[Rfam]
Nucleotides: 298
Stems, first nucleotide, its partner, number of pairs: 001108003005102007013093002018090002024087010035074002037070003042067004046062003116171002118168004122139004127135002141161002147158003207272001214265001216262001221261001228257004237253002
Number, partner (000 for none) and nucleotide at each position: 001108g002107g003106a004000u005102g006101u007100g008099a009098g010097g011096g012000c013093g014092a015000u016000c017000u018090g019089g020000c021000u022000g023000c024087g025086a026085c027084a028083u029082c030081u031080g032079u033078c034000a035074c036073c037070c038069c039068a040000u041000u042067g043066a044065u045064c046062g047061c048060c049000a050000g051000g052000g053000u054000u055000g056000a057000u058000u059000c060048g061047g062046c063000u064045g065044a066043u067042c068039u069038g070037g071000c072000u073036g074035g075000c076000u077000a078033g079032g080031c081030g082029g083028g084027u085026g086025u087024c088000c089019c090018c091000u092014u093013c094000c095000u096011c097010c098009c099008u100007c101006a102005c103000c104000g105000c106003u107002c108001c109000a110000u111000g112000u113000g114000c115000g116171u117170c118168c119167c120166u121165c122139c123138c124137g125136a126000a127135g128134c129000u130000g131000c132000g133000c134128g135127c136125u137124c138123g139122g140000u141161c142160g143000a144000a145000g146000a147158g148157g149156a150000c151000a152000a153000c154000c155000u156149u157148c158147c159000c160142c161141g162000c163000u164000a165121g166120a167119g168118g169000a170117g171116g172000a173000c174000c175000g176000g177000u178000c179000u180000u181000c182000g183000g184000g185000u186000u187000c188000g189000g190000u191000c192000a193000a194000g195000g196000g197000u198000a199000u200000a201000c202000g203000a204000g205000u206000a207272g208000c209000u210000g211000c212000g213000c214265u215000c216262c217000c218000c219000u220000g221261c222000u223000a224000g225000a226000a227000c228257c229256u230255c231254c232000a233000a234000a235000c236000a237253a238252g239000c240000u241000c242000u243000c244000a245000a246000g247000g248000u249000u250000g251000a252238u253237u254231g255230g256229g257228g258000a259000a260000u261221g262216g263000c264000u265214a266000u267000u268000u269000c270000u271000u272207u273000u274000u275000u276000c277000a278000u279000u280000c281000c282000u283000a284000a285000g286000u287000c288000c289000a290000c291000a292000g293000u294000a295000u296000u297000a298000g